[Rfam]
RNA sequence: AUUUCUUCUAUAGUGUAUCCUCGAUUGAUGCAGCCUCGGAUGCUUCA
Numbered sequence: 001a002u003u004u005c006u007u008c009u010a011u012a013g014u015g016u017a018u019c020c021u022c023g024a025u026u027g028a029u030g031c032a033g034c035c036u037c038g039g040a041u042g043c044u045u046c047a
Stems, first nucleotide, its partner, number of pairs: 010025002013022001032044003
RNA: Plastid-ycf3 group II-D1 intron